Shown here is a 178-nucleotide sequence from Anabaenopsis elenkinii, a member of the family "Antisense RNA which regulates isiA expression".
Pairs were carried over by alignment from the consensus structure, which was predicted with PFOLD.
NCBI's taxonomy places the organism under Bacteria, Bacillati, Cyanobacteriota, Nodulariaceae, Anabaenopsis elenkinii.
On this family, see Duhring et al., Proc Natl Acad Sci U S A 2006: "An internal antisense RNA regulates expression of the photosynthesis gene isiA".
A search with the family's covariance model found it, with a score of 134 bits.
RNA sequence: AGUAGCCGAAAAUUGUCACAGGGUUUAAAUUAGGAUUGCUAAUCAGGCGAACAUCACCCAAAUUAGGAUCAUAAAUUCCCCCGAAAAACAUUGCUUUGACAACUAAUAACAAUGCUCCCAAACCAAGAAUAAUCAGGUGAUGCCCUAAAAUUAAACCCAACUUUUUAGGAUCAUUCCA
Numbered sequence: 001a002g003u004a005g006c007c008g009a010a011a012a013u014u015g016u017c018a019c020a021g022g023g024u025u026u027a028a029a030u031u032a033g034g035a036u037u038g039c040u041a042a043u044c045a046g047g048c049g050a051a052c053a054u055c056a057c058c059c060a061a062a063u064u065a066g067g068a069u070c071a072u073a074a075a076u077u078c079c080c081c082c083g084a085a086a087a088a089c090a091u092u093g094c095u096u097u098g099a100c101a102a103c104u105a106a107u108a109a110c111a112a113u114g115c116u117c118c119c120a121a122a123c124c125a126a127g128a129a130u131a132a133u134c135a136g137g138u139g140a141u142g143c144c145c146u147a148a149a150a151u152u153a154a155a156c157c158c159a160a161c162u163u164u165u166u167a168g169g170a171u172c173a174u175u176c177c178a
Stems, first nucleotide, its partner, number of pairs: 136175006144169005